[Rfam]
RNA sequence: UGAUCCUGCUUCUGUAAGUCGCUCUGUAUAAGAGCGUCUGCUAAAUGACUAGAA
Numbered sequence: 001u002g003a004u005c006c007u008g009c010u011u012c013u014g015u016a017a018g019u020c021g022c023u024c025u026g027u028a029u030a031a032g033a034g035c036g037u038c039u040g041c042u043a044a045a046u047g048a049c050u051a052g053a054a
Base pairs, nucleotide, nucleotide: 013043014041015040016039020036021035022034023033024032025031
UnaL2 LINE 3' element: a 54-nucleotide RNA from Coregonus sp. 'balchen'. Pairs were carried over by alignment from the consensus structure, which is taken from published work. The eel long interspersed element (LINE) UnaL2 and its partner short interspersed element (SINE) share a conserved 3' tail containing a stem-loop that is critical for their retrotransposition. Presumably, the first step of retrotransposition is the recognition of their 3' tails by UnaL2-encoded reverse transcriptase. The solution structure of a 17-nucleotide RNA derived from the 3' tail of UnaL2 was determined by NMR. NCBI's taxonomy places the organism under Eukaryota, Chordata, Neopterygii, Clupeocephala, Coregonus. By type it is a cis-regulatory element. Rfam 15.1 lists 493,311 matches to the family in 99 species.